[Rfam]
RNA sequence: AAAAUGUAUGCGCUGAAUCCUGGUAUAACAGGUACGGAGGACCCAAAAUUGGGGUGAAGCGACAUGAUCGCGGGGCCUAAGCCUUGGCCCUAACCCGACAGCUAACUUCGGAGGCGCCGGAAGGCGGGGUA
Numbered sequence: 001a002a003a004a005u006g007u008a009u010g011c012g013c014u015g016a017a018u019c020c021u022g023g024u025a026u027a028a029c030a031g032g033u034a035c036g037g038a039g040g041a042c043c044c045a046a047a048a049u050u051g052g053g054g055u056g057a058a059g060c061g062a063c064a065u066g067a068u069c070g071c072g073g074g075g076c077c078u079a080a081g082c083c084u085u086g087g088c089c090c091u092a093a094c095c096c097g098a099c100a101g102c103u104a105a106c107u108u109c110g111g112a113g114g115c116g117c118c119g120g121a122a123g124g125c126g127g128g129g130u131a
Stems, first nucleotide, its partner, number of pairs: 011116004019032004035110005044051002052096003060070003073090004
RNA: c-di-AMP riboswitch aptamer (ydaO/yuaA leader)
Organism: Anaerospora hongkongensis